[Rfam]
RNA sequence: AUGAAUCAGGGGCAAACCUAAUUGAAAAAUGGGGACGCAAAGUCACAGAUCUAAAGCUUAUCGCUAGGAUGGCUGGACUGCAGAG
Numbered sequence: 001a002u003g004a005a006u007c008a009g010g011g012g013c014a015a016a017c018c019u020a021a022u023u024g025a026a027a028a029a030u031g032g033g034g035a036c037g038c039a040a041a042g043u044c045a046c047a048g049a050u051c052u053a054a055a056g057c058u059u060a061u062c063g064c065u066a067g068g069a070u071g072g073c074u075g076g077a078c079u080g081c082a083g084a085g
Base pairs, nucleotide, nucleotide: 012038013037017033018032019031020030022029023028041079042078043077044076046075047074048073049070050069051068056064057063

A member of the RNA family "c-di-GMP-I riboswitch aptamer" from Peribacillus saganii, 85 nucleotides long.
NCBI's taxonomy places the organism under Bacteria, Bacillati, Caryophanales, Bacillaceae, Peribacillus.
The base pairs follow the family's consensus structure, which is taken from published work.